About this RNA: Small nucleolar RNA ZL2: a 73-nucleotide RNA from Carlito syrichta. NCBI's taxonomy places the organism under Eukaryota, Teleostomi, Euarchontoglires, Tarsiiformes, Carlito. The family's RNA type in Rfam is C/D-box small nucleolar RNA. Pairs were carried over by alignment from the consensus structure, which was predicted with RNAfold. The literature on the family includes a 2013 paper in Genome Biol by Kishore et al., "Insights into snoRNA biogenesis and processing from PAR-CLIP of snoRNA core proteins and small RNA sequencing".
[Rfam]
RNA sequence: GGCCUCAGUGAUGAAGAAAUGCCCGGGGAGGACUGUGACCCAGCUGGGAUGUAUUCGUACAUCUGAUGGGGCC
Numbered sequence: 001g002g003c004c005u006c007a008g009u010g011a012u013g014a015a016g017a018a019a020u021g022c023c024c025g026g027g028g029a030g031g032a033c034u035g036u037g038a039c040c041c042a043g044c045u046g047g048g049a050u051g052u053a054u055u056c057g058u059a060c061a062u063c064u065g066a067u068g069g070g071g072c073c
Stems, first nucleotide, its partner, number of pairs: 001073007010063004018055005023048002026045002030041002
A search with the family's covariance model found it, with a score of 70 bits.